[Rfam]
RNA sequence: CUUGGGAAGAGGAAGAAAGAGAGGCUCCAAGAGUAGUAGGACUGGGAACAUAUGAGAAAGCAUGAGCUCUAUCCAUCUAUCCAUCCCCUCCCAUUCGCUAGAAUGUUGCAGGUGGAGAUUUCGCUCUUAUGUUUUCUCGAUGCCUCCCAUUCCUAUCGUUCUUGGAACUUCCUUCCUCUUCCUUUUUUUU
Numbered sequence: 001c002u003u004g005g006g007a008a009g010a011g012g013a014a015g016a017a018a019g020a021g022a023g024g025c026u027c028c029a030a031g032a033g034u035a036g037u038a039g040g041a042c043u044g045g046g047a048a049c050a051u052a053u054g055a056g057a058a059a060g061c062a063u064g065a066g067c068u069c070u071a072u073c074c075a076u077c078u079a080u081c082c083a084u085c086c087c088c089u090c091c092c093a094u095u096c097g098c099u100a101g102a103a104u105g106u107u108g109c110a111g112g113u114g115g116a117g118a119u120u121u122c123g124c125u126c127u128u129a130u131g132u133u134u135u136c137u138c139g140a141u142g143c144c145u146c147c148c149a150u151u152c153c154u155a156u157c158g159u160u161c162u163u164g165g166a167a168c169u170u171c172c173u174u175c176c177u178c179u180u181c182c183u184u185u186u187u188u189u190u
Stems, first nucleotide, its partner, number of pairs: 009181005015175003021171003026166009037155005043149005049142003055137012
The family of this 190-nucleotide sequence from Oryza sativa is "MIR2118 microRNA precursor family".